[Rfam]
RNA sequence: CCAUCUGAAACUCCCCCACUCCCUGAGGUGCAGUGCUGGACUGGGGACAUGUGAUGAUGCCACAGGAAAUCCAGACAAGCUCCCUUUCACCACAGUGGGACUUGUCUCUACGCCUUUGCAACGUUU
Numbered sequence: 001c002c003a004u005c006u007g008a009a010a011c012u013c014c015c016c017c018a019c020u021c022c023c024u025g026a027g028g029u030g031c032a033g034u035g036c037u038g039g040a041c042u043g044g045g046g047a048c049a050u051g052u053g054a055u056g057a058u059g060c061c062a063c064a065g066g067a068a069a070u071c072c073a074g075a076c077a078a079g080c081u082c083c084c085u086u087u088c089a090c091c092a093c094a095g096u097g098g099g100a101c102u103u104g105u106c107u108c109u110a111c112g113c114c115u116u117u118g119c120a121a122c123g124u125u126u
Base pairs, nucleotide, nucleotide: 002056003055004054005053014046015045016044017043018042021039022038061118062117064115065114073107074106075105076104077103078102079101087098088097089096

This 126-nucleotide RNA sequence from Promerops cafer belongs to the Rfam family "Small nucleolar RNA SNORA55". The base pairs follow the family's consensus structure, which was predicted with PFOLD. The organism belongs to Promerops, within Eukaryota. From the family's description: ACA55 is a member of the H/ACA class of snoRNA that guide the sites of modification of uridines to pseudouridines. The match comes from Rfam's covariance-model search (66 bits).